[Rfam]
RNA sequence: UCGACUGUACUUGCACAGUAUCACUGCUACAGUGAUUCCUCUUCCAUACAUGUCAUAAAACAGAUCUUCACAGCAUCUCUGAUGAUGUCGAUCUCUGCACUGAUAAUGAAUUUGCUGGAGCUUGCUCCCAGCUUGAUGAAAUCUAUCAGUGCAGACUUCUGAAGAGAU
Numbered sequence: 001u002c003g004a005c006u007g008u009a010c011u012u013g014c015a016c017a018g019u020a021u022c023a024c025u026g027c028u029a030c031a032g033u034g035a036u037u038c039c040u041c042u043u044c045c046a047u048a049c050a051u052g053u054c055a056u057a058a059a060a061c062a063g064a065u066c067u068u069c070a071c072a073g074c075a076u077c078u079c080u081g082a083u084g085a086u087g088u089c090g091a092u093c094u095c096u097g098c099a100c101u102g103a104u105a106a107u108g109a110a111u112u113u114g115c116u117g118g119a120g121c122u123u124g125c126u127c128c129c130a131g132c133u134u135g136a137u138g139a140a141a142u143c144u145a146u147c148a149g150u151g152c153a154g155a156c157u158u159c160u161g162a163a164g165a166g167a168u
Stems, first nucleotide, its partner, number of pairs: 003039001006035001008034004017028004046067001048065001051062003076167005094155005100149006107140001114132003118127001
A member of the RNA family "ACEA small nucleolar RNA U3" from Polarella glacialis, 168 nucleotides long. Pairs were carried over by alignment from the consensus structure, which is taken from published work. For this family Rfam cites "The uRNA database" (Zwieb, Nucleic Acids Res, 1997). Rfam links the family to the GO terms nucleolus and RNA processing. Rfam's curators write: Small nucleolar RNAs (snoRNAs) are involved in the processing and modification of rRNA in the nucleolus. There are two main classes of snoRNAs: the box C/D class, and the box H/ACA class. U3 snoRNA is a member of the box C/D class. Indeed, the box C/D element is a subset of the six short sequence elements found in all U3 snoRNAs, namely boxes A, A', B, C, C', and D. The U3 snoRNA secondary structure is characterised by a small 5' domain (with boxes A and A'), and a larger 3' domain (with boxes B, C, C', and D), the two domains being linked by a single-stranded hinge. A search with the family's covariance model found it, with a score of 64 bits. Rfam 15.1 lists 2,156 matches to the family in 132 species. By type it is a C/D-box small nucleolar RNA.